[Rfam]
RNA sequence: GGAACCUUUAAUACAGUCCCGUGAGGCUGAGAAGGAAACGGAUAUCUUUUGGGGGAUUUUUGUAAUCCUCAAGAGCUAACUUUGUGUACGCACACCCUCUCGCUAUAUCGGUGAGAGGGUUUUUUGUUU
Dot-bracket structure: ....(((((....(((((......))))).)))))..........((((((((((.(......).))))))))))..............(.(.((((((((((.......)))))))))).).).....
The family of this 129-nucleotide sequence from Bacillus sp. DNRA2 is "PyrR binding site". The source organism's lineage runs through Bacteria, Bacillota, Bacilli, Caryophanales and Bacillus. It scores 59 bits against the family's covariance model.